[Rfam]
Nucleotides: 093
Base pairs, nucleotide, nucleotide: 001093002092003091004090005089006088007087012027013026014025016023017022029046030044031043032042033041049067050066051065052064053063070084071083072082073081
Number, partner (000 for none) and nucleotide at each position: 001093g002092g003091g004090a005089g006088c007087g008000a009000a010000u011000g012027g013026g014025g015000a016023a017022c018000u019000g020000g021000u022017g023016u024000c025014c026013c027012c028000c029046c030044c031043g032042g033041u034000c035000u036000u037000c038000a039000a040000a041033a042032c043031c044030g045000u046029g047000u048000g049067g050066g051065a052064g053063g054000c055000g056000c057000g058000c059000u060000g061000c062000g063053u064052c065051u066050c067049c068000g069000g070084u071083g072082g073081g074000u075000u076000c077000g078000a079000u080000u081073c082072c083071c084070a085000c086000g087007c088006g089005u090004u091003c092002c093001c